[Rfam]
RNA sequence: AACCCCACGUUAGACGUAGGGUUCGGUAAAGCUUAAGCGGUGGGGCAUGACAUAAAAACUCCUUUUGAUGUAAAAUAAACUUGCGGUCUGGCAACUGCAAGAAAACAUCAAAAG
Numbered sequence: 001a002a003c004c005c006c007a008c009g010u011u012a013g014a015c016g017u018a019g020g021g022u023u024c025g026g027u028a029a030a031g032c033u034u035a036a037g038c039g040g041u042g043g044g045g046c047a048u049g050a051c052a053u054a055a056a057a058a059c060u061c062c063u064u065u066u067g068a069u070g071u072a073a074a075a076u077a078a079a080c081u082u083g084c085g086g087u088c089u090g091g092c093a094a095c096u097g098c099a100a101g102a103a104a105a106c107a108u109c110a111a112a113a114g
Stems, first nucleotide, its partner, number of pairs: 001023005007017004028041001031038002062114009080101008
Dot-bracket structure: (((((.((((...)))).)))))....(..((....))..)....................(((((((((.........((((((((......))))))))....)))))))))